[Rfam]
RNA sequence: ACGCCGUCCCGAGCGGCGUCCGCCGCCUCGAACGGGUCGGCAGCGGGGGUGGUGCCGUGUCGGCGCAGCACCACCCCCGCCUC
Numbered sequence: 001a002c003g004c005c006g007u008c009c010c011g012a013g014c015g016g017c018g019u020c021c022g023c024c025g026c027c028u029c030g031a032a033c034g035g036g037u038c039g040g041c042a043g044c045g046g047g048g049g050u051g052g053u054g055c056c057g058u059g060u061c062g063g064c065g066c067a068g069c070a071c072c073a074c075c076c077c078c079g080c081c082u083c
Stems, first nucleotide, its partner, number of pairs: 001019007022041004026036003043080013057066003